[Rfam]
RNA sequence: UUUGGUUCAGCAGGAAUUGAACCCGCAAAUUUACCAAUUAUGAGUUGGGCGCUUUAACCAUUCAGCCAUGGA
Numbered sequence: 001u002u003u004g005g006u007u008c009a010g011c012a013g014g015a016a017u018u019g020a021a022c023c024c025g026c027a028a029a030u031u032u033a034c035c036a037a038u039u040a041u042g043a044g045u046u047g048g049g050c051g052c053u054u055u056a057a058c059c060a061u062u063c064a065g066c067c068a069u070g071g072a
Base pairs, nucleotide, nucleotide: 006072007071008070010026011025013023014022040069041068042067044066045065046064047063048062049061051059